[Rfam]
RNA: Lysine riboswitch aptamer
Organism: Sporomusa sphaeroides
RNA sequence: GGAUGAAGUAGAGGUGCGGGAGUUAACAGUACUUUCAGGGAGAGCGGCGUCGAUGAGCUGGAAGGAAAGGGACAACCGCCGAAGUAAAAGCAGGACUGCCAGUCUCUUUUACUGGUCUUAUAUCAAACAGGUUUAAGACUGUCACCAUUACUUGGUGGAGUGCUAUCUCAUCU
Numbered sequence: 001g002g003a004u005g006a007a008g009u010a011g012a013g014g015u016g017c018g019g020g021a022g023u024u025a026a027c028a029g030u031a032c033u034u035u036c037a038g039g040g041a042g043a044g045c046g047g048c049g050u051c052g053a054u055g056a057g058c059u060g061g062a063a064g065g066a067a068a069g070g071g072a073c074a075a076c077c078g079c080c081g082a083a084g085u086a087a088a089a090g091c092a093g094g095a096c097u098g099c100c101a102g103u104c105u106c107u108u109u110u111a112c113u114g115g116u117c118u119u120a121u122a123u124c125a126a127a128c129a130g131g132u133u134u135a136a137g138a139c140u141g142u143c144a145c146c147a148u149u150a151c152u153u154g155g156u157g158g159a160g161u162g163c164u165a166u167c168u169c170a171u172c173u
Stems, first nucleotide, its partner, number of pairs: 006168001008166004016079004022073003032064007083113008093103001114140007122132003142158006